[Rfam]
RNA sequence: CCUGCUUGAAAGACAUGGGUAGUGAGAUGUUUCGCUUUCGUCUUGUCUCACUACCUUGUCUUUCAUGCAGGG
Number, nucleotide and partner (000 for none) at each position: 001c000002c000003u000004g000005c000006u000007u000008g064009a063010a062011a061012g060013a059014c058015a057016u000017g056018g055019g054020u000021a052022g051023u050024g049025a048026g047027a046028u045029g044030u000031u000032u000033c000034g000035c000036u000037u000038u000039c000040g000041u000042c000043u000044u029045g028046u027047c026048u025049c024050a023051c022052u021053a000054c019055c018056u017057u015058g014059u013060c012061u011062u010063u009064c008065a000066u000067g000068c000069a000070g000071g000072g000